[Rfam]
Nucleotides: 072
Base pairs, nucleotide, nucleotide: 010025011024012023013022016063017062018061020059021058045053046052
Number, partner (000 for none) and nucleotide at each position: 001000g002000c003000a004000g005000c006000c007000a008000g009000u010025g011024g012023u013022g014000a015000u016063g017062g018061a019000u020059c021058c022013c023012g024011c025010c026000c027000g028000g029000a030000c031000u032000u033000c034000g035000u036000g037000u038000c039000c040000a041000a042000a043000c044000c045053g046052c047000a048000u049000a050000a051000c052046g053045c054000u055000g056000a057000u058021g059020g060000u061018u062017c063016c064000u065000a066000c067000u068000c069000a070000a071000u072000c